This 31-nucleotide sequence from Erinaceus europaeus belongs to the Rfam family "Iron response element II". IRE, TFRC, SLC40A1, SDHB, SLC11A2, CDC42BPA, ACO2, ALAS2_H.SAPIENS, CDC14A, EPAS1, ALAS2, qoxD, Hao1, NDUFS1, transferrin, Aconitate. Rfam's curators put it in the seed alignment. Rfam 15.1 lists 5,197 matches to the family in 722 species. The base pairs follow the family's consensus structure, which is taken from published work. Lineage of the source: Eukaryota > Opisthokonta > Craniata > Teleostomi > Erinaceus.
RNA sequence: UGAUUAUCGGGGGCAGUGUCUCCCAUAAUCC
Numbered sequence: 001u002g003a004u005u006a007u008c009g010g011g012g013g014c015a016g017u018g019u020c021u022c023c024c025a026u027a028a029u030c031c
Stems, first nucleotide, its partner, number of pairs: 002030006009024005014018001